[Rfam]
RNA: Streptomyces sRNA 4677
Organism: Streptomyces sp. SID2119
RNA sequence: CGCGACGUGGCGAGCCACGACAUCAACUACGUAAAGAACCAAGAGAAAUAACCCAACCCCACCCCACCCGACCCCGGUGGUCAGCUGCGGGAGGGGCUGGUCACCCACACGGGUGAGAUUCGCCAACUGAGCUGGAUUUCGUACAGGUUGGCAGGCAUAUGCUCACGCUGACCGAGCACCCCAGACAUGAGACGGCCCCCGCCGGGACGGCAAUCCCGAGCGAGGACCUGACCACCAAGGAAGAGACGACUUCCCC
Numbered sequence: 001c002g003c004g005a006c007g008u009g010g011c012g013a014g015c016c017a018c019g020a021c022a023u024c025a026a027c028u029a030c031g032u033a034a035a036g037a038a039c040c041a042a043g044a045g046a047a048a049u050a051a052c053c054c055a056a057c058c059c060c061a062c063c064c065c066a067c068c069c070g071a072c073c074c075c076g077g078u079g080g081u082c083a084g085c086u087g088c089g090g091g092a093g094g095g096g097c098u099g100g101u102c103a104c105c106c107a108c109a110c111g112g113g114u115g116a117g118a119u120u121c122g123c124c125a126a127c128u129g130a131g132c133u134g135g136a137u138u139u140c141g142u143a144c145a146g147g148u149u150g151g152c153a154g155g156c157a158u159a160u161g162c163u164c165a166c167g168c169u170g171a172c173c174g175a176g177c178a179c180c181c182c183a184g185a186c187a188u189g190a191g192a193c194g195g196c197c198c199c200c201g202c203c204g205g206g207a208c209g210g211c212a213a214u215c216c217c218g219a220g221c222g223a224g225g226a227c228c229u230g231a232c233c234a235c236c237a238a239g240g241a242a243g244a245g246a247c248g249a250c251u252u253c254c255c256c
Base pairs, nucleotide, nucleotide: 007236010233016091018089019088101116102115103114104113105112106111131168132167133165134164135163194228195227197225198224200222201221202220204217205216206215207214239254240253241252242251243250